RNA sequence: GGUUGGGUUGGGAAGUAUCAUGGCUAAUCACCAUGAUGCAAUCGGGUUGAACACUUAAUUGGGUUAAAACGGUGGGGGACGAUCCCGUAACAUCCGUCCUAACGGCGACAGACUGCACGGCCCUGCCUCUUAGGUGUGUCCAAUGAACAGUCGUUCCGAAAGGAAGCAUCCGGUAUCCCAAGACAAUC
Numbered sequence: 001g002g003u004u005g006g007g008u009u010g011g012g013a014a015g016u017a018u019c020a021u022g023g024c025u026a027a028u029c030a031c032c033a034u035g036a037u038g039c040a041a042u043c044g045g046g047u048u049g050a051a052c053a054c055u056u057a058a059u060u061g062g063g064u065u066a067a068a069a070c071g072g073u074g075g076g077g078g079a080c081g082a083u084c085c086c087g088u089a090a091c092a093u094c095c096g097u098c099c100u101a102a103c104g105g106c107g108a109c110a111g112a113c114u115g116c117a118c119g120g121c122c123c124u125g126c127c128u129c130u131u132a133g134g135u136g137u138g139u140c141c142a143a144u145g146a147a148c149a150g151u152c153g154u155u156c157c158g159a160a161a162g163g164a165a166g167c168a169u170c171c172g173g174u175a176u177c178c179c180a181a182g183a184c185a186a187u188c
Stems, first nucleotide, its partner, number of pairs: 006188005015039007027083003041174006047143003051139004063152001065150001069097004074091001075086003098105002111148001114120001125135004154165004
Annotation:
Shown here is a 188-nucleotide sequence from Didymium iridis, a member of the family "GIR1 branching ribozyme". NCBI's taxonomy places the organism under Eukaryota, Eumycetozoa, Physariida, Didymiaceae, Didymium. Rfam links the family to the GO term RNA splicing. Pairs were carried over by alignment from the consensus structure, which is taken from published work.